[Rfam]
RNA: permuted transfer-messenger RNA
Organism: Gallionella sp.
RNA sequence: UGCGAAAACUCCGAUUCAUUAAGGGCUUGUUGGACGGCGGUUCAAUUCCGCCCAUCUCCACCAUAAGUGCAAUUGAACUAAGUGCGCUUAUGCUGGGGAUGACAUGGCUUCGACAGUGAGCAGAUAGGUUUUGGGGCGACACGUCAGGCGAUCGACGUAAAUGAAGCAAGCAUGUAAAUGCAAACGAUGAAAACUACGCUAUCGCGGCCUAA
Numbered sequence: 001u002g003c004g005a006a007a008a009c010u011c012c013g014a015u016u017c018a019u020u021a022a023g024g025g026c027u028u029g030u031u032g033g034a035c036g037g038c039g040g041u042u043c044a045a046u047u048c049c050g051c052c053c054a055u056c057u058c059c060a061c062c063a064u065a066a067g068u069g070c071a072a073u074u075g076a077a078c079u080a081a082g083u084g085c086g087c088u089u090a091u092g093c094u095g096g097g098g099a100u101g102a103c104a105u106g107g108c109u110u111c112g113a114c115a116g117u118g119a120g121c122a123g124a125u126a127g128g129u130u131u132u133g134g135g136g137c138g139a140c141a142c143g144u145c146a147g148g149c150g151a152u153c154g155a156c157g158u159a160a161a162u163g164a165a166g167c168a169a170g171c172a173u174g175u176a177a178a179u180g181c182a183a184a185c186g187a188u189g190a191a192a193a194c195u196a197c198g199c200u201a202u203c204g205c206g207g208c209c210u211a212a
Stems, first nucleotide, its partner, number of pairs: 001141002014131001017128001026120003030116003036052005053101007142157004